Notes
Rfam assigns this 83-nucleotide RNA sequence from Streptosporangium sandarakinum to the family "ZMP/ZTP riboswitch aptamer (pfl RNA motif)". Taxonomically the source falls in Streptosporangium (Bacteria, Bacillati, Actinomycetes, Streptosporangiaceae).
[Rfam]
RNA sequence: UGGAGGUCAAGCGACUGGCGGCACGGGGAUGGCGUCAACCAUCGGGGAGCUCGUCGUGGGGGUCGACCGCCUGGGCACCCACU
Numbered sequence: 001u002g003g004a005g006g007u008c009a010a011g012c013g014a015c016u017g018g019c020g021g022c023a024c025g026g027g028g029a030u031g032g033c034g035u036c037a038a039c040c041a042u043c044g045g046g047g048a049g050c051u052c053g054u055c056g057u058g059g060g061g062g063u064c065g066a067c068c069g070c071c072u073g074g075g076c077a078c079c080c081a082c083u
Stems, first nucleotide, its partner, number of pairs: 004057001006055001008053001010051003015046002017071005029042004060078001062076003